[Rfam]
RNA sequence: UUCGCGCCUGGCGUGCUGCUAAGAUCAAGUAAGUAUCUGUUCUUAUCAGUUUAAUACCUGAUAUCGUCCUCCAUUCGAGGACAUCAUAUUAAUAAACGCAUUUUUCGACCGAGAGCUGGAAGAGGGGCUUGCUCCGUCCGCUCACGCGCAUCGUCCUGGUAUUGCAGUACCUCCAGGAACGGUGCACUUUCU
Numbered sequence: 001u002u003c004g005c006g007c008c009u010g011g012c013g014u015g016c017u018g019c020u021a022a023g024a025u026c027a028a029g030u031a032a033g034u035a036u037c038u039g040u041u042c043u044u045a046u047c048a049g050u051u052u053a054a055u056a057c058c059u060g061a062u063a064u065c066g067u068c069c070u071c072c073a074u075u076c077g078a079g080g081a082c083a084u085c086a087u088a089u090u091a092a093u094a095a096a097c098g099c100a101u102u103u104u105u106c107g108a109c110c111g112a113g114a115g116c117u118g119g120a121a122g123a124g125g126g127g128c129u130u131g132c133u134c135c136g137u138c139c140g141c142u143c144a145c146g147c148g149c150a151u152c153g154u155c156c157u158g159g160u161a162u163u164g165c166a167g168u169a170c171c172u173c174c175a176g177g178a179a180c181g182g183u184g185c186a187c188u189u190u191c192u
Base pairs, nucleotide, nucleotide: 001022044063045062046061047060048059049058066082067081068080069079070078071077113145114142115141116140118138119137124135125134126133127132148185149184150183151182152181153180155177156176157175158174159173
Shown here is a 192-nucleotide RNA sequence from Ameiurus melas, a member of the family "U2 spliceosomal RNA". The family has 208 seed sequences and 71,512 matches in Rfam 15.1. NCBI's taxonomy places the organism under Eukaryota, Opisthokonta, Teleostomi, Otophysi, Ameiurus. The base pairs follow the family's consensus structure, which is taken from published work. Clan: U2 clan. The match comes from Rfam's covariance-model search (118 bits). Rfam's curators write: U2 is a small nuclear RNA (snRNA) component of the spliceosome (involved in pre-mRNA splicing). A reference for the family is Thomas et al. (1990), "The spliceosomal snRNAs of Caenorhabditis elegans", Nucleic Acids Res.